[Rfam]
Rfam assigns this 92-nucleotide RNA from Punica granatum to the family "Small nucleolar RNA snoR26". Pairs were carried over by alignment from the consensus structure, which was predicted with WAR. Rfam classes the family as a C/D-box small nucleolar RNA. The organism belongs to Punica, within Eukaryota.

RNA sequence: UGAGCAUCAGUGAUGAGUACUUAAAAUCACUACCCUUGCACUUUGAUUGCCAGUGAAGAAACUUAUGGGUAAAUAUGUUAUCUGAGAUGCUC
Numbered sequence: 001u002g003a004g005c006a007u008c009a010g011u012g013a014u015g016a017g018u019a020c021u022u023a024a025a026a027u028c029a030c031u032a033c034c035c036u037u038g039c040a041c042u043u044u045g046a047u048u049g050c051c052a053g054u055g056a057a058g059a060a061a062c063u064u065a066u067g068g069g070u071a072a073a074u075a076u077g078u079u080a081u082c083u084g085a086g087a088u089g090c091u092c
Stems, first nucleotide, its partner, number of pairs: 002092007
The match comes from Rfam's covariance-model search (88 bits).